[Rfam]
RNA sequence: GAAUGCAGUGAUGACCAUUUGUUUUCCCUAUUGGUUUGAUGGCCAGAAUGAUGGCAUAUUGUAUUAGCUCUAUCUGAGCAUUC
Numbered sequence: 001g002a003a004u005g006c007a008g009u010g011a012u013g014a015c016c017a018u019u020u021g022u023u024u025u026c027c028c029u030a031u032u033g034g035u036u037u038g039a040u041g042g043c044c045a046g047a048a049u050g051a052u053g054g055c056a057u058a059u060u061g062u063a064u065u066a067g068c069u070c071u072a073u074c075u076g077a078g079c080a081u082u083c
Base pairs, nucleotide, nucleotide: 002082003081004080005079038055043054044053
Annotation:
The family of this 83-nucleotide sequence from Lupinus angustifolius is "Small nucleolar RNA Z102/R77". The match comes from Rfam's covariance-model search (72 bits). Rfam classes the family as a C/D-box small nucleolar RNA. The literature on the family includes a 2003 paper in Nucleic Acids Res by Chen et al., "The high diversity of snoRNAs in plants: identification and comparative study of 120 snoRNA genes from Oryza sativa". Its Rfam clan is "SNORD44 clan". NCBI's taxonomy places the organism under Eukaryota, Euphyllophyta, Magnoliopsida, Mesangiospermae, Lupinus. Rfam links the family to the GO terms nucleolus and RNA processing.